[Rfam]
RNA sequence: GGGGGGAGGUCGGAUCCUGGGCUGUUUCCCCCGCGCCCUGUGCUCCCCUGCCUGCCCUGUUGGAUUCGCGCUCCCGGCCGCGCAGCCCCCU
Numbered sequence: 001g002g003g004g005g006g007a008g009g010u011c012g013g014a015u016c017c018u019g020g021g022c023u024g025u026u027u028c029c030c031c032c033g034c035g036c037c038c039u040g041u042g043c044u045c046c047c048c049u050g051c052c053u054g055c056c057c058u059g060u061u062g063g064a065u066u067c068g069c070g071c072u073c074c075c076g077g078c079c080g081c082g083c084a085g086c087c088c089c090c091u
Stems, first nucleotide, its partner, number of pairs: 001091006009083002011080003016077002019074003023070003027064002030062001031059001033057001035055002040052001042051002
Dot-bracket structure: ((((((..(((((..((.(((.(((.((.((.(.((...(.((......))).)).).)..)))...))).))).))))).))..))))))